Small nucleolar RNA SNORA74: a 205-nucleotide sequence from Salvator merianae. The family's consensus secondary structure was predicted with PFOLD. U19 belongs to the H/ACA class of snoRNAs. snoRNAs bind a number of proteins (including dyskerin, Gar1p and Nop10p in the case of the H/ACA class) to form snoRNP complexes. Rfam links the family to the GO terms nucleolus and RNA processing. A search with the family's covariance model found it, with a score of 109 bits.
Nucleotides: 205
Base pairs, nucleotide, nucleotide: 001060002059003058004057005056006055007054008053009052011051012050015046016045017044018043019042020041021039022038024036025035069138070137071136072135073134074133075132076131086127087126088125089124090121091120092119093118094117095116096114097113098112099111100110101109102108140200141199142198143197144196145195146194147193157185158184160181161180162179163178164177166175
Number, partner (000 for none) and nucleotide at each position: 001060u002059c003058c004057a005056g006055u007054g008053g009052u010000g011051g012050u013000c014000a015046g016045c017044u018043g019042u020041c021039u022038g023000u024036g025035u026000c027000a028000g029000c030000a031000c032000c033000a034000u035025g036024u037000c038022u039021g040000u041020g042019a043018c044017a045016g046015u047000g048000u049000u050012a051011c052009a053008c054007u055006g056005c057004u058003g059002g060001a061000a062000g063000a064000u065000a066000a067000a068000a069138g070137u071136a072135c073134u074133g075132u076131c077000u078000g079000u080000u081000u082000u083000c084000a085000c086127u087126g088125u089124u090121u091120g092119u093118c094117a095116g096114c097113a098112c099111u100110u101109c102108u103000g104000u105000u106000c107000u108102a109101g110100a111099g112098g113097u114096g115000g116095c117094u118093g119092g120091c121090a122000c123000c124089a125088g126087u127086a128000u129000g130000u131076g132075g133074c134073a135072g136071u137070g138069c139000u140200g141199u142198g143197c144196u145195u146194c147193u148000c149000u150000g151000a152000g153000a154000g155000u156000a157185u158184g159000c160181u161180g162179a163178g164177c165000u166175g167000u168000u169000a170000a171000u172000a173000u174000c175166c176000u177164g178163c179162u180161c181160a182000u183000g184158c185157g186000c187000u188000a189000g190000u191000c192000u193147a194146g195145a196144a197143g198142c199141a200140u201000a202000c203000a204000u205000u